The record is an 82-nucleotide RNA sequence from Steatornis caripensis, which matches "Small nucleolar RNA SNORD72" in Rfam. The literature on the family includes a 2001 paper in EMBO J by Huttenhofer et al., "RNomics: an experimental approach that identifies 201 candidates for novel, small, non-messenger RNAs in mouse". Rfam 15.1 lists 726 matches to the family in 499 species. Rfam's curators write: snoRNA HBII-240 belongs to the CD family of snoRNAs. It is the human orthologue of the mouse MBII-240 and is predicted to guide 2'O-ribose methylation of the large 28S rRNA at residue U4590. Gene Ontology terms of the family: RNA processing and nucleolus. A search with the family's covariance model found it, with a score of 50 bits.
Nucleotides: 082
Stems, first nucleotide, its partner, number of pairs: 003080006
Number, partner (000 for none) and nucleotide at each position: 001000c002000a003080c004079u005078u006077g007076u008075u009000a010000a011000u012000a013000g014000g015000u016000g017000u018000u019000u020000c021000u022000u023000c024000u025000u026000a027000a028000a029000a030000a031000u032000g033000u034000c035000u036000g037000a038000a039000c040000a041000u042000a043000u044000g045000a046000a047000c048000u049000c050000c051000u052000u053000g054000g055000u056000g057000a058000u059000u060000u061000u062000a063000g064000u065000g066000c067000a068000u069000u070000a071000c072000u073000g074000a075008g076007a077006u078005a079004a080003g081000c082000u